[Rfam]
RNA sequence: AUUCUGCCUUGGAAUGACACGAUCACUCCCGUUGAGCCCGAAAUCAGAGUGCCAUCGGGAAUAUCGUGUCGCUCCAAAGCUCUCU
Numbered sequence: 001a002u003u004c005u006g007c008c009u010u011g012g013a014a015u016g017a018c019a020c021g022a023u024c025a026c027u028c029c030c031g032u033u034g035a036g037c038c039c040g041a042a043a044u045c046a047g048a049g050u051g052c053c054a055u056c057g058g059g060a061a062u063a064u065c066g067u068g069u070c071g072c073u074c075c076a077a078a079g080c081u082c083u084c085u
Stems, first nucleotide, its partner, number of pairs: 006080002009077004016070008027060005033054002036052002
The record is an 85-nucleotide RNA from Hymenochirus boettgeri, which matches "mir-425 microRNA precursor family" in Rfam. Taxonomically the source falls in Hymenochirus (Eukaryota, Chordata, Euteleostomi, Pipinae).